Description:
A member of the RNA family "Small nucleolar RNA SNORD75" from Denticeps clupeoides, 70 nucleotides long. Rfam 15.1 lists 767 matches to the family in 616 species. Rfam links the family to the GO terms nucleolus and RNA processing. Taxonomically the source falls in Denticeps (Eukaryota, Vertebrata, Osteoglossocephalai, Denticipitidae). On this family, see Smith and Steitz, Mol Cell Biol 1998: "Classification of gas5 as a multi-small-nucleolar-RNA (snoRNA) host gene and a member of the 5'-terminal oligopyrimidine gene family reveals common features of snoRNA host genes".
RNA sequence: GGCCGAUGAUGAGUGAAAUGAAUAAGAGUAGUGGACAGAAUGCAUUUCUGAACGUUUCUACUCUGAGGUC
Numbered sequence: 001g002g003c004c005g006a007u008g009a010u011g012a013g014u015g016a017a018a019u020g021a022a023u024a025a026g027a028g029u030a031g032u033g034g035a036c037a038g039a040a041u042g043c044a045u046u047u048c049u050g051a052a053c054g055u056u057u058c059u060a061c062u063c064u065g066a067g068g069u070c
Stems, first nucleotide, its partner, number of pairs: 001070004